[Rfam]
RNA: MIR398 microRNA precursor family
RNA sequence: GGAGUUCCAACAGGGGCGACAUGAGGGCACACGAUGGGGAGCCCUCCGACCAUCCCUCGCGGGACGGCCUCCUUCCACCCGUCCGUGUGUUCUCAGGUCGCCCCUCCCGGCACUCU
Numbered sequence: 001g002g003a004g005u006u007c008c009a010a011c012a013g014g015g016g017c018g019a020c021a022u023g024a025g026g027g028c029a030c031a032c033g034a035u036g037g038g039g040a041g042c043c044c045u046c047c048g049a050c051c052a053u054c055c056c057u058c059g060c061g062g063g064a065c066g067g068c069c070u071c072c073u074u075c076c077a078c079c080c081g082u083c084c085g086u087g088u089g090u091u092c093u094c095a096g097g098u099c100g101c102c103c104c105u106c107c108c109g110g111c112a113c114u115c116u
Stems, first nucleotide, its partner, number of pairs: 007110002012105003016101004023094010